[Rfam]
Background
The family of this 48-nucleotide RNA from Clostridium sp. CAG:265 is "PreQ1 (pre queuosine) riboswitch aptamer". The base pairs follow the family's consensus structure. Rfam describes the family as follows. This family is a bacterial riboswitch that binds to the metabolite preQ1, an intermediate in the biosynthesis of the modified nucleoside queuosine from GTP. One example of this riboswitch is located in the leader of the Bacillus subtilis ykvJKLM (queCDEF) operon which encodes four genes necessary for queuosine production. PreQ1 binding to the riboswitch aptamer is thought to induce premature transcription termination within the leader to down-regulate expression of these genes. Rfam links the family to the GO term queuosine biosynthetic process.
RNA sequence: UUAGGAGAGGUUCGUCAAUACCAUCCCUCUAUAAAAAACUAGGAUUAU
Number, nucleotide and partner (000 for none) at each position: 001u000002u000003a000004g000005g000006a030007g029008a028009g027010g026011u000012u000013c000014g000015u041016c000017a000018a000019u000020a000021c000022c000023a000024u000025c000026c010027c009028u008029c007030u006031a000032u000033a000034a000035a000036a000037a000038a000039c000040u000041a015042g000043g000044a000045u000046u000047a000048u000

The match comes from Rfam's covariance-model search (42 bits).